[Rfam]
RNA sequence: UUAUCUUUGAUGCUCAAAUUAUGAAAAACAAAACAGUAAAUACUUGGUGGUGGAUCUCGCAACAGUAAUGUCGUGAAACAACCUUGUAUUUAAAAUUUAAAUAACUGAAAGGCCUGUC
Numbered sequence: 001u002u003a004u005c006u007u008u009g010a011u012g013c014u015c016a017a018a019u020u021a022u023g024a025a026a027a028a029c030a031a032a033a034c035a036g037u038a039a040a041u042a043c044u045u046g047g048u049g050g051u052g053g054a055u056c057u058c059g060c061a062a063c064a065g066u067a068a069u070g071u072c073g074u075g076a077a078a079c080a081a082c083c084u085u086g087u088a089u090u091u092a093a094a095a096u097u098u099a100a101a102u103a104a105c106u107g108a109a110a111g112g113c114c115u116g117u118c
Base pairs, nucleotide, nucleotide: 031098032097033096037092038091039090040089041088042087043086046083050082051081053079055077060073062071063070064069
Shown here is a 118-nucleotide RNA sequence from Leeuwenhoekiella blandensis, a member of the family "Bacteroidete tryptophan peptide leader RNA".
Rfam's curators put it in the seed alignment.
Rfam classes the family as a cis-regulatory leader.
Lineage of the source: Bacteria > Bacteroidota > Flavobacteriia > Flavobacteriaceae > Leeuwenhoekiella blandensis.